A member of the RNA family "Vault RNA" from Phocoena sinus, 94 nucleotides long. A reference for the family is Stadler et al. (2009), "Evolution of Vault RNAs", Mol Biol Evol. Pairs were carried over by alignment from the consensus structure, which is taken from published work. The family has 73 seed sequences and 2,873 matches in Rfam 15.1. The source organism's lineage runs through Eukaryota, Metazoa, Deuterostomia, Chordata and Phocoena. By type it is a non-coding RNA gene.

RNA sequence: GGGUUGGCUUUAGCUGAAGCGGUUACUCAGUUCCAUUGGACUUUCUGAUUCCUAUAUUGGGGUUUGAGACCCGUGGGUGCUUUCUCACCCUUUU
Numbered sequence: 001g002g003g004u005u006g007g008c009u010u011u012a013g014c015u016g017a018a019g020c021g022g023u024u025a026c027u028c029a030g031u032u033c034c035a036u037u038g039g040a041c042u043u044u045c046u047g048a049u050u051c052c053u054a055u056a057u058u059g060g061g062g063u064u065u066g067a068g069a070c071c072c073g074u075g076g077g078u079g080c081u082u083u084c085u086c087a088c089c090c091u092u093u094u
Base pairs, nucleotide, nucleotide: 002089003088004087006085007084013078014077015076019074020073021072022071026068027067028066029065030064